A member of the RNA family "mir-252 microRNA precursor family" from Haemonchus contortus, 72 nucleotides long. The sequence is in the family's curated seed alignment. Pairs were carried over by alignment from the consensus structure, which was predicted with RNAalifold. The literature on the family includes a 2009 paper in BMC Genomics by Li et al., "Direct sequencing and expression analysis of a large number of miRNAs in Aedes aegypti and a multi-species survey of novel mosquito miRNAs". Taxonomically the source falls in Haemonchus (Eukaryota, Opisthokonta, Protostomia, Rhabditina).
[Rfam]
RNA sequence: UGCAAGUGCUAAGUAGUGGUGCCGCAGGUAACCUGUAUGCGAUUACCUGCCGCCUGCUGCUUACCAUUUGUA
Numbered sequence: 001u002g003c004a005a006g007u008g009c010u011a012a013g014u015a016g017u018g019g020u021g022c023c024g025c026a027g028g029u030a031a032c033c034u035g036u037a038u039g040c041g042a043u044u045a046c047c048u049g050c051c052g053c054c055u056g057c058u059g060c061u062u063a064c065c066a067u068u069u070g071u072a
Base pairs, nucleotide, nucleotide: 001072002071003070004069005068006067007066010063011062012061013060014059015058016057017056018055019054024050025049026048027047028046029045030044